The family of this 91-nucleotide sequence from Thermanaeromonas toyohensis is "c-di-GMP-I riboswitch aptamer".

RNA sequence: CCCCGACAAGGGCAAACCCAUCGAAAGGUGGGGGCGCAAAGCUAUAGGGUCUAAGGCCAGAUGUUUCUGGCUAUGACAGCCAGCUGCCGUG
Numbered sequence: 001c002c003c004c005g006a007c008a009a010g011g012g013c014a015a016a017c018c019c020a021u022c023g024a025a026a027g028g029u030g031g032g033g034g035c036g037c038a039a040a041g042c043u044a045u046a047g048g049g050u051c052u053a054a055g056g057c058c059a060g061a062u063g064u065u066u067c068u069g070g071c072u073a074u075g076a077c078a079g080c081c082a083g084c085u086g087c088c089g090u091g
Stems, first nucleotide, its partner, number of pairs: 012037002017032006040085004047081002049077003056071006
Its family is annotated with cyclic-di-GMP binding in the Gene Ontology. The match comes from Rfam's covariance-model search (81 bits). From the family's description: GEMM was predicted in a large-scale screen for bacterial structured RNA regulatory elements.